[Rfam]
RNA sequence: UACUUAUCAAGAGUGGUGGAGGGACUGGCCCUGUGAAACCCGGCAACCAAUAUUUAUUAGAUGAUAUGAGGUGCCAAAUCCUGCAGUUUUUAUGACUGGUAGAUAAGGU
Numbered sequence: 001u002a003c004u005u006a007u008c009a010a011g012a013g014u015g016g017u018g019g020a021g022g023g024a025c026u027g028g029c030c031c032u033g034u035g036a037a038a039c040c041c042g043g044c045a046a047c048c049a050a051u052a053u054u055u056a057u058u059a060g061a062u063g064a065u066a067u068g069a070g071g072u073g074c075c076a077a078a079u080c081c082u083g084c085a086g087u088u089u090u091u092a093u094g095a096c097u098g099g100u101a102g103a104u105a106a107g108g109u
Base pairs, nucleotide, nucleotide: 003107004106005105006104007103008102013041015040016039017038021031022030023029025083027081028080042075043074044073045072047071048070050067051066052065053064054063079101084098085097086096087095
RNA: SAM riboswitch aptamer (S box leader)
Organism: Clostridium butyricum